Rfam assigns this 168-nucleotide RNA from Butyrivibrio sp. XB500-5 to the family "Clostridiales-1 RNA". It is annotated as a small RNA. The base pairs follow the family's consensus structure, which is taken from published work.

[Rfam]
RNA sequence: UGAUAAAGGUGUCAAAAGUCAAAAAGCGUACAUGCUUGCAUGUUAUGCUUUUUGACUUUAUGACCCGAACAAAUAUGAGAAAAUAGCAAUUUGCAUAGCAAAUUAGCGGUUUUCGAAUAUUUGUAGAAUUGCGAAAAUGACAUAAGUCAUGGAGCAAUUCGUUUAUCA
Numbered sequence: 001u002g003a004u005a006a007a008g009g010u011g012u013c014a015a016a017a018g019u020c021a022a023a024a025a026g027c028g029u030a031c032a033u034g035c036u037u038g039c040a041u042g043u044u045a046u047g048c049u050u051u052u053u054g055a056c057u058u059u060a061u062g063a064c065c066c067g068a069a070c071a072a073a074u075a076u077g078a079g080a081a082a083a084u085a086g087c088a089a090u091u092u093g094c095a096u097a098g099c100a101a102a103u104u105a106g107c108g109g110u111u112u113u114c115g116a117a118u119a120u121u122u123g124u125a126g127a128a129u130u131g132c133g134a135a136a137a138u139g140a141c142a143u144a145a146g147u148c149a150u151g152g153a154g155c156a157a158u159u160c161g162u163u164u165a166u167c168a
Base pairs, nucleotide, nucleotide: 001168002167003166004165005164006163007162011064012063013062015059016058017057018056019055020054021053022052023051024050025049026048027047028046029045030043031042032041033040034039069124070123071122072121073120074119075118076117079114080113081112082111086107087106088104089103090102091101092100126160127159128158129157130156131155132154137150138149139148140147